Shown here is a 66-nucleotide RNA sequence from Callorhinus ursinus, a member of the family "Selenocysteine insertion sequence 1". It scores 38 bits against the family's covariance model. Pairs were carried over by alignment from the consensus structure, which is taken from published work. Lineage of the source: Eukaryota > Deuterostomia > Chordata > Amniota > Callorhinus.
[Rfam]
RNA sequence: CGGGCAUCCAUGAUGGUCUGCCUAAAAAUCAGCCUGCAGGUGGGGCAGAUCCGAGAACCCGGCGUG
Dot-bracket structure: ((.((.........(((((((((......(.(....).)...)))))))))..........)).))